[Rfam]
RNA sequence: CGCGCAGCAGGACGGAAAGACCCCGUGACCUUUACUAUAGUUUGGUAUUGGUGUUUGGUUUGGCUUGUGUAGGAUAGGUGGGAGACUGUGAAGCAUGGACGCUAGUUUGUGUGGAGUCGUUGUUGAAAUACCACUCUGGUCAAUCUGGAUGUCUAACUUCGGGCCAUGAUCUGGUUCAGGGACAGUGCCUGAUGGGUAGUUUAACUGGGGCGGUUGCCUCCUAAAGUGUAACGGAGGCGCCCAAAGGUUCCCUCAGCCUGGUUGGCAAUCAGGUGUUGAGUGUAAGUGCACAAGGGAGCUUGACUGUGAGACUGGCAGGUCGAGCAGGGACGAAAGUCGGGACUAGUGAUCCGGCGGUACGUUGUGGAACGGCCGUCGCUCAACGGAUAAAAGGUACCUCGGGGAUAACAGGCUGAUCUUGCCCAAGAGUCCAUAUCGACGGCAUGGUUUGGCACCUCGAUGUCGGCUCGUCGCAUCCUGGGGCUGGAGUCGGUCCCAAGGGUUGGGCUGUUCGCCCAUUAAAGCGGUACGCGAGCUGGGUUCAGAACGUCGUGAGACAGUUCGGUCCCUAUCCGCUGCGCGCGUU
Numbered sequence: 001c002g003c004g005c006a007g008c009a010g011g012a013c014g015g016a017a018a019g020a021c022c023c024c025g026u027g028a029c030c031u032u033u034a035c036u037a038u039a040g041u042u043u044g045g046u047a048u049u050g051g052u053g054u055u056u057g058g059u060u061u062g063g064c065u066u067g068u069g070u071a072g073g074a075u076a077g078g079u080g081g082g083a084g085a086c087u088g089u090g091a092a093g094c095a096u097g098g099a100c101g102c103u104a105g106u107u108u109g110u111g112u113g114g115a116g117u118c119g120u121u122g123u124u125g126a127a128a129u130a131c132c133a134c135u136c137u138g139g140u141c142a143a144u145c146u147g148g149a150u151g152u153c154u155a156a157c158u159u160c161g162g163g164c165c166a167u168g169a170u171c172u173g174g175u176u177c178a179g180g181g182a183c184a185g186u187g188c189c190u191g192a193u194g195g196g197u198a199g200u201u202u203a204a205c206u207g208g209g210g211c212g213g214u215u216g217c218c219u220c221c222u223a224a225a226g227u228g229u230a231a232c233g234g235a236g237g238c239g240c241c242c243a244a245a246g247g248u249u250c251c252c253u254c255a256g257c258c259u260g261g262u263u264g265g266c267a268a269u270c271a272g273g274u275g276u277u278g279a280g281u282g283u284a285a286g287u288g289c290a291c292a293a294g295g296g297a298g299c300u301u302g303a304c305u306g307u308g309a310g311a312c313u314g315g316c317a318g319g320u321c322g323a324g325c326a327g328g329g330a331c332g333a334a335a336g337u338c339g340g341g342a343c344u345a346g347u348g349a350u351c352c353g354g355c356g357g358u359a360c361g362u363u364g365u366g367g368a369a370c371g372g373c374c375g376u377c378g379c380u381c382a383a384c385g386g387a388u389a390a391a392a393g394g395u396a397c398c399u400c401g402g403g404g405a406u407a408a409c410a411g412g413c414u415g416a417u418c419u420u421g422c423c424c425a426a427g428a429g430u431c432c433a434u435a436u437c438g439a440c441g442g443c444a445u446g447g448u449u450u451g452g453c454a455c456c457u458c459g460a461u462g463u464c465g466g467c468u469c470g471u472c473g474c475a476u477c478c479u480g481g482g483g484c485u486g487g488a489g490u491c492g493g494u495c496c497c498a499a500g501g502g503u504u505g506g507g508c509u510g511u512u513c514g515c516c517c518a519u520u521a522a523a524g525c526g527g528u529a530c531g532c533g534a535g536c537u538g539g540g541u542u543c544a545g546a547a548c549g550u551c552g553u554g555a556g557a558c559a560g561u562u563c564g565g566u567c568c569c570u571a572u573c574c575g576c577u578g579c580g581c582g583c584g585u586u
Stems, first nucleotide, its partner, number of pairs: 001582008010574003014569002022403004027398001028395005034200004041192002044189004050153009060143006067136001077135005084118003096109005157180003203215004216238006241341002247299006253279002256274006280289002304327004310321003329338001331336001352378006360371003412453003416450001417447002420444004427437002464539001465537004469531001470528005477502002481496005504518005545563004549558003
Dot-bracket structure: ((((((((.(((.((......((((.((((((.((((...((.((((..(((((((((.((((((.(.........(((((..(((.........(((((....)))))......)))............)))))).)))))).)))))))))...(((..................))).....)))).))....))))..((((.....))))((((((...........))))))..((....((((((((.((((((.......))))))...))((......))....))))))....((((..(((......)))..)))).(.(....).).))..........((((((..(((......))).))))))............)))))..).))))........(((.(((.((((...((.......))...)))).))..))))..........(((((((((((..((..(((((......)))))....)).(((((.....))))).....)))))..)..)))).).....(((((((....))).))))....))..)))))))))))....
Rfam assigns this 586-nucleotide part of an RNA from Rothia mucilaginosa to the family "Archaeal large subunit ribosomal RNA". A search with the family's covariance model found it, with a score of 1460 bits. The literature on the family includes a 2002 paper in BMC Bioinformatics by Cannone et al., "The comparative RNA web (CRW) site: an online database of comparative sequence and structure information for ribosomal, intron, and other RNAs". Its Rfam clan is "LSU clan".